The family of this 69-nucleotide sequence from Carnegiea gigantea is "Plastid-clpP 5UTR RNA".
Pairs were carried over by alignment from the consensus structure, which was predicted with LocARNA.
Lineage of the source: Eukaryota > Streptophytina > Tracheophyta > Euphyllophyta > Carnegiea.
Rfam describes the family as follows. Plastid clpP is a non-coding RNA (ncRNA) recognised in plastids. It was found in the prime untranslated region (5UTR) of a protease complex subunit (clpP) in plastids, suggesting a posible cis-regulatory function.
It scores 74 bits against the family's covariance model.
RNA sequence: AAUUUUUUUUGUAGGAACAAAGAGAGAUAAAUACAUUCUAUACCCGAUGAGUAGCAAUACGCAAUGGGG
Numbered sequence: 001a002a003u004u005u006u007u008u009u010u011g012u013a014g015g016a017a018c019a020a021a022g023a024g025a026g027a028u029a030a031a032u033a034c035a036u037u038c039u040a041u042a043c044c045c046g047a048u049g050a051g052u053a054g055c056a057a058u059a060c061g062c063a064a065u066g067g068g069g
Base pairs, nucleotide, nucleotide: 003022004021006019008017009016010015043068044067045066051060052059053058